[Rfam]
RNA sequence: AACUUAUCAAGAGUGGUGGAGGGACUGGCCCUAUGAAACCCGGCAACCGACAUUUAGUUCAUUUACUAUAUGUGACGGUGCUAAUUCCUGCAGUUUAUUUAAACUGGUAGAUGAGAG
Numbered sequence: 001a002a003c004u005u006a007u008c009a010a011g012a013g014u015g016g017u018g019g020a021g022g023g024a025c026u027g028g029c030c031c032u033a034u035g036a037a038a039c040c041c042g043g044c045a046a047c048c049g050a051c052a053u054u055u056a057g058u059u060c061a062u063u064u065a066c067u068a069u070a071u072g073u074g075a076c077g078g079u080g081c082u083a084a085u086u087c088c089u090g091c092a093g094u095u096u097a098u099u100u101a102a103a104c105u106g107g108u109a110g111a112u113g114a115g116a117g
Base pairs, nucleotide, nucleotide: 003115004114005113006112007111008110013041015040016039017038021031022030023029025090027088028087042082043081044080045079047078048077050073051072052071086109091106092105093104094103095102
Description
SAM riboswitch aptamer (S box leader): a 117-nucleotide sequence from Clostridium butyricum. The source organism's lineage runs through Bacteria, Bacillota, Eubacteriales, Clostridium and Clostridium butyricum.